[Rfam]
RNA: Yersinia sRNA 251
Organism: Cronobacter sakazakii
RNA sequence: CGUACGCGUUAAGCGUUCGCUGGCAGAGUGCGGAACGCACGCAAUCGGCUUUACCGAACCGCACGAUGCCAAUCAUCUCAUCUUCCUCAAAACGCGCCAGCGCGUCGCUCAGGCCGGACUGCACGCCCGCCGGCAAAUCGCACUGGGUGAUGUCGCCAUUGACUAUCACGGUCACGUUCUCCCCGAGGCGGGUU
Numbered sequence: 001c002g003u004a005c006g007c008g009u010u011a012a013g014c015g016u017u018c019g020c021u022g023g024c025a026g027a028g029u030g031c032g033g034a035a036c037g038c039a040c041g042c043a044a045u046c047g048g049c050u051u052u053a054c055c056g057a058a059c060c061g062c063a064c065g066a067u068g069c070c071a072a073u074c075a076u077c078u079c080a081u082c083u084u085c086c087u088c089a090a091a092a093c094g095c096g097c098c099a100g101c102g103c104g105u106c107g108c109u110c111a112g113g114c115c116g117g118a119c120u121g122c123a124c125g126c127c128c129g130c131c132g133g134c135a136a137a138u139c140g141c142a143c144u145g146g147g148u149g150a151u152g153u154c155g156c157c158a159u160u161g162a163c164u165a166u167c168a169c170g171g172u173c174a175c176g177u178u179c180u181c182c183c184c185g186a187g188g189c190g191g192g193u194u
Base pairs, nucleotide, nucleotide: 002054003053004052006050014041015040016039018037019036061078063076065074066073067072083112084111088107093102094101095100113193114192115191117189119188120187122185125134126133127132137166138165140163144158145157146156171183174180